[Rfam]
Source information
Rfam assigns this 73-nucleotide sequence from Ustilaginoidea virens to the family "bZIP non canonical Hac1/Xbp1 intron". A search with the family's covariance model found it, with a score of 53 bits. NCBI's taxonomy places the organism under Eukaryota, saccharomyceta, sordariomyceta, Clavicipitaceae, Ustilaginoidea. About the family: bZIP intron RNA is a non-canonical intron that was first reported in HAC1 gene in yeast and XBP1 gene in Metazoa. The base pairs follow the family's consensus structure, which was predicted with RNAfold. The family's RNA type in Rfam is small RNA.
RNA sequence: CGCUUGCUCCGACCUGACACAACAUCCUGCUGAGAUGUUGUUGGACCUGCAGUGUCACCAGUCGGAGCAAGUG
Numbered sequence: 001c002g003c004u005u006g007c008u009c010c011g012a013c014c015u016g017a018c019a020c021a022a023c024a025u026c027c028u029g030c031u032g033a034g035a036u037g038u039u040g041u042u043g044g045a046c047c048u049g050c051a052g053u054g055u056c057a058c059c060a061g062u063c064g065g066a067g068c069a070a071g072u073g
Base pairs, nucleotide, nucleotide: 001073002072003071004070005069006068007067009065010064011063012062013061021039022038023037024036025035026034044056045055046054
Dot-bracket structure: (((((((.(((((.......((((((.......))))))....(((.......)))....))))).)))))))